Background
The family of this 86-nucleotide sequence from Albula goreensis is "Small nucleolar RNA SNORD11B". The literature on the family includes a 2006 paper in Nucleic Acids Res by Yang et al., "snoSeeker: an advanced computational package for screening of guide and orphan snoRNA genes in the human genome". It scores 64 bits against the family's covariance model.
[Rfam]
Nucleotides: 086
Stems, first nucleotide, its partner, number of pairs: 002085006
Number, partner (000 for none) and nucleotide at each position: 001000u002085a003084c004083a005082a006081g007080c008000a009000g010000u011000g012000a013000u014000g015000a016000u017000g018000u019000u020000g021000a022000c023000a024000u025000a026000c027000u028000g029000u030000c031000a032000u033000a034000g035000c036000c037000c038000u039000g040000a041000a042000a043000a044000c045000u046000a047000a048000a049000c050000u051000g052000u053000g054000g055000g056000u057000u058000c059000c060000u061000a062000a063000g064000u065000c066000a067000c068000u069000a070000c071000c072000u073000c074000a075000u076000c077000u078000g079000a080007g081006c082005u083004u084003g085002u086000a
Background
The source organism's lineage runs through Eukaryota, Metazoa, Teleostei, Albulinae and Albula. Gene Ontology terms of the family: RNA processing and nucleolus. The family is grouped with related families in Rfam's "SNORD11 clan".